[Rfam]
RNA sequence: AAACCCCUGCCGUGUACGUGAUUGGAAGAUGCGCUUUGAUCCAACAUUUUAAAAAAGGGAACCUUCUCUAGUUUUGGUGUGCAUGUUCUGCUUGAACAGAAAAGCCUGAAGAAACUACAAGGAUACCGCCAUGAAUACAUGGUUCAAAGACCUGCCAACACGGCACUAUGGUGGGGGAUUU
Numbered sequence: 001a002a003a004c005c006c007c008u009g010c011c012g013u014g015u016a017c018g019u020g021a022u023u024g025g026a027a028g029a030u031g032c033g034c035u036u037u038g039a040u041c042c043a044a045c046a047u048u049u050u051a052a053a054a055a056a057g058g059g060a061a062c063c064u065u066c067u068c069u070a071g072u073u074u075u076g077g078u079g080u081g082c083a084u085g086u087u088c089u090g091c092u093u094g095a096a097c098a099g100a101a102a103a104g105c106c107u108g109a110a111g112a113a114a115c116u117a118c119a120a121g122g123a124u125a126c127c128g129c130c131a132u133g134a135a136u137a138c139a140u141g142g143u144u145c146a147a148a149g150a151c152c153u154g155c156c157a158a159c160a161c162g163g164c165a166c167u168a169u170g171g172u173g174g175g176g177g178a179u180u181u
Base pairs, nucleotide, nucleotide: 002179004177005176006175007174008173009172010171011170012166013165014164015163017162018161019160034149035148037146038145039144041142042141057127058126062122063121064120065119069117070116071115072114073113074112075111081105082104086101087100088099089098090097
A member of the RNA family "6S / SsrS RNA" from Desulfonema limicola, 181 nucleotides long. For this family Rfam cites "6S RNA regulates E. coli RNA polymerase activity" (Wassarman and Storz, Cell, 2000). The family's RNA type in Rfam is non-coding RNA gene.